[Rfam]
RNA: Lysine riboswitch aptamer
RNA sequence: GAUCGCGGUAGAGGCGCGGAAUAAAUAAGUCGUGCUUGUUGGGGUGAUGCCAAUGAACAAGCAUAAAAGGUUAUUUCGCCGAAGUGAACUUUCUCAUCAAUGAAGUUUGCUGGGGUUACACUCGAAAGGGGUAACACUGCCAUAGUCUAUAAUUUGUAAAACUAUGGAGCGCUACUGUAGGG
Numbered sequence: 001g002a003u004c005g006c007g008g009u010a011g012a013g014g015c016g017c018g019g020a021a022u023a024a025a026u027a028a029g030u031c032g033u034g035c036u037u038g039u040u041g042g043g044g045u046g047a048u049g050c051c052a053a054u055g056a057a058c059a060a061g062c063a064u065a066a067a068a069g070g071u072u073a074u075u076u077c078g079c080c081g082a083a084g085u086g087a088a089c090u091u092u093c094u095c096a097u098c099a100a101u102g103a104a105g106u107u108u109g110c111u112g113g114g115g116u117u118a119c120a121c122u123c124g125a126a127a128g129g130g131g132u133a134a135c136a137c138u139g140c141c142a143u144a145g146u147c148u149a150u151a152a153u154u155u156g157u158a159a160a161a162c163u164a165u166g167g168a169g170c171g172c173u174a175c176u177g178u179a180g181g182g
Base pairs, nucleotide, nucleotide: 006177007176008175009174010173011172016079017078018077019076020075021074022073023072024071032064033063034062035061036060037059038058039057083111084110085109086108087107088106089105090104091103092102094100112138113137115135116134117133118132119131121129122128140167141166142165143164144163145162146161